[Rfam]
RNA sequence: AGACCUGAAGAGAGAGACAGGGUCUGAUCCACAGCCUCCGUGGCAGCUGUGGAUCAGCUGUUCCCUCUCUCUCUCUCUGGG
Numbered sequence: 001a002g003a004c005c006u007g008a009a010g011a012g013a014g015a016g017a018c019a020g021g022g023u024c025u026g027a028u029c030c031a032c033a034g035c036c037u038c039c040g041u042g043g044c045a046g047c048u049g050u051g052g053a054u055c056a057g058c059u060g061u062u063c064c065c066u067c068u069c070u071c072u073c074u075c076u077c078u079g080g081g
Base pairs, nucleotide, nucleotide: 009072010071011070012069013068014067015066016065019062020061022059024057025056026055027054028053029052032049033048034047035046
mir-574 microRNA precursor family: an 81-nucleotide RNA sequence from Myotis myotis. Gene Ontology terms of the family: RISC complex and miRNA-mediated post-transcriptional gene silencing. Taxonomically the source falls in Myotis (Eukaryota, Gnathostomata, Theria, Chiroptera). Clan: mir-574 microRNA precursor clan.